The record is a 71-nucleotide RNA sequence from Bugula neritina, which matches "mir-71 microRNA precursor family" in Rfam. The match comes from Rfam's covariance-model search (53 bits). The base pairs follow the family's consensus structure, which was predicted with RNAalifold. The organism belongs to Bugula, within Eukaryota. The family has 36 seed sequences and 372 matches in Rfam 15.1.
RNA sequence: AUUGUGUGAAAGACAUGGGUAGUGAGAUGUCGCUCUCUCUAACACCUCACUGCAAUGUCUUUUAUGCAAAG
Numbered sequence: 001a002u003u004g005u006g007u008g009a010a011a012g013a014c015a016u017g018g019g020u021a022g023u024g025a026g027a028u029g030u031c032g033c034u035c036u037c038u039c040u041a042a043c044a045c046c047u048c049a050c051u052g053c054a055a056u057g058u059c060u061u062u063u064a065u066g067c068a069a070a071g
Stems, first nucleotide, its partner, number of pairs: 008063008019053001021051006028044002